Shown here is a 117-nucleotide sequence from Mycobacterium shinjukuense, a member of the family "Group II catalytic intron D1-D4-2". Pairs were carried over by alignment from the consensus structure. Lineage of the source: Bacteria > Bacillati > Actinomycetes > Mycobacteriales > Mycobacterium. From the family's description: Group II introns are found in rRNA, tRNA and mRNA of organelles in fungi, plants and protists, and also in mRNA in bacteria. A reference for the family is Chu et al. (2001), "Control of branch-site choice by a group II intron", EMBO J.
RNA sequence: GAUUGUCGGCCCUUCGGAGUCGCCCUGCGGGGGGAGGCUUCAAACCGCCACAUGCUGCGGAAGCGGUGACGCGACCGUGGUGAGCGAUGUGGAAAAGGCGCGCGUGACGUGUCAGGU
Numbered sequence: 001g002a003u004u005g006u007c008g009g010c011c012c013u014u015c016g017g018a019g020u021c022g023c024c025c026u027g028c029g030g031g032g033g034g035a036g037g038c039u040u041c042a043a044a045c046c047g048c049c050a051c052a053u054g055c056u057g058c059g060g061a062a063g064c065g066g067u068g069a070c071g072c073g074a075c076c077g078u079g080g081u082g083a084g085c086g087a088u089g090u091g092g093a094a095a096a097g098g099c100g101c102g103c104g105u106g107a108c109g110u111g112u113c114a115g116g117u
Stems, first nucleotide, its partner, number of pairs: 001015002005011001016041006023034004046116001048092006054081002057078003063072002097113006